[Rfam]
The family of this 78-nucleotide RNA sequence from Sphingobium phenoxybenzoativorans is "terC RNA". Taxonomically the source falls in Sphingobium (Bacteria, Pseudomonadati, Pseudomonadota, Sphingobiaceae). Rfam classes the family as a cis-regulatory element.
RNA sequence: GGAGCGGGCCGGGCCCCUCUGGCGGCUGGCGGCGUUCUGCAGGACAGGGCGCACCAGACGUGAUGUCGGACCGCAUCG
Numbered sequence: 001g002g003a004g005c006g007g008g009c010c011g012g013g014c015c016c017c018u019c020u021g022g023c024g025g026c027u028g029g030c031g032g033c034g035u036u037c038u039g040c041a042g043g044a045c046a047g048g049g050c051g052c053a054c055c056a057g058a059c060g061u062g063a064u065g066u067c068g069g070a071c072c073g074c075a076u077c078g
Base pairs, nucleotide, nucleotide: 006072007071009069010068011067012066022061023060024059026057027056028055029054